Record summary: Shown here is a 101-nucleotide RNA from Cohnella endophytica, a member of the family "Purine riboswitch aptamer". Rfam links the family to the GO term purine nucleobase biosynthetic process. The base pairs follow the family's consensus structure, which is taken from published work. NCBI's taxonomy places the organism under Bacteria, Bacillati, Bacilli, Caryophanales, Cohnella.
[Rfam]
RNA sequence: CAUAACAACUGAAUAACUUUUCGUAUAAUCCCGGGAAUCGGCCCGGGAGUCUCUACGAGGUCACCGCAAAUGAUCUGUCUACGGAAAGGGAAAAUUCAUUG
Numbered sequence: 001c002a003u004a005a006c007a008a009c010u011g012a013a014u015a016a017c018u019u020u021u022c023g024u025a026u027a028a029u030c031c032c033g034g035g036a037a038u039c040g041g042c043c044c045g046g047g048a049g050u051c052u053c054u055a056c057g058a059g060g061u062c063a064c065c066g067c068a069a070a071u072g073a074u075c076u077g078u079c080u081a082c083g084g085a086a087a088g089g090g091a092a093a094a095u096u097c098a099u100u101g
Stems, first nucleotide, its partner, number of pairs: 018087008029048007058076006